About this RNA: Shown here is a 96-nucleotide RNA from Gossypium schwendimanii, a member of the family "Plastid-rps12 3UTR RNA". About the family: Plastid rpl20 is a non-coding RNA (ncRNA) recognised in plastids. It was found in the three prime untranslated region (3UTR) of rps12 gene, its 3UTR location sugest a role in transcript maduration. The source organism's lineage runs through Eukaryota, Embryophyta, Spermatophyta, Mesangiospermae and Gossypium. A search with the family's covariance model found it, with a score of 84 bits. The family's RNA type in Rfam is cis-regulatory element.

RNA sequence: GGUUUCCAUUGGCGCAAAUUCAAUCUUGGAAUUUAAGAUGAGAAAAAAUUUCUUAUUGGUGGCAAAUACUUAUCCAUUAAGCGGAGAAAAUCCUAU
Numbered sequence: 001g002g003u004u005u006c007c008a009u010u011g012g013c014g015c016a017a018a019u020u021c022a023a024u025c026u027u028g029g030a031a032u033u034u035a036a037g038a039u040g041a042g043a044a045a046a047a048a049u050u051u052c053u054u055a056u057u058g059g060u061g062g063c064a065a066a067u068a069c070u071u072a073u074c075c076a077u078u079a080a081g082c083g084g085a086g087a088a089a090a091u092c093c094u095a096u
Stems, first nucleotide, its partner, number of pairs: 009023004051086001053084002055077002058074005
Dot-bracket structure: ........((((.......))))...........................(.((((.(((((.......))))).)).....)).)..........